[Rfam]
RNA sequence: ACCUUAUAAAGAUGUAGUUACGCAAGACAGUAACGCAUUUCCCUUUAAGGUGAUGUUAGACAGAGAAGUAUAAGCAAGAAGUCUUAUUGUGAAGCUAUGCGUUGAAAUAGGAUGAGUUUAUACGGAAUAGGUUAACCGUAAGACCUUAUGUUGAAAAACAUUAAAAUUGACCUAGAAAUAAGAGAAUUUCUGAAUUUUCGUUAUUUUUAGUUACGGUAAA
Numbered sequence: 001a002c003c004u005u006a007u008a009a010a011g012a013u014g015u016a017g018u019u020a021c022g023c024a025a026g027a028c029a030g031u032a033a034c035g036c037a038u039u040u041c042c043c044u045u046u047a048a049g050g051u052g053a054u055g056u057u058a059g060a061c062a063g064a065g066a067a068g069u070a071u072a073a074g075c076a077a078g079a080a081g082u083c084u085u086a087u088u089g090u091g092a093a094g095c096u097a098u099g100c101g102u103u104g105a106a107a108u109a110g111g112a113u114g115a116g117u118u119u120a121u122a123c124g125g126a127a128u129a130g131g132u133u134a135a136c137c138g139u140a141a142g143a144c145c146u147u148a149u150g151u152u153g154a155a156a157a158a159c160a161u162u163a164a165a166a167u168u169g170a171c172c173u174a175g176a177a178a179u180a181a182g183a184g185a186a187u188u189u190c191u192g193a194a195u196u197u198u199c200g201u202u203a204u205u206u207u208u209a210g211u212u213a214c215g216g217u218a219a220a
Stems, first nucleotide, its partner, number of pairs: 001051006008044001010040006017034005022028001068123008082112007093103002129146005135217006141167001148161005172210010182199006
A member of the RNA family "IS605-orfB-I RNA", 220 nucleotides long. It is annotated as a small RNA.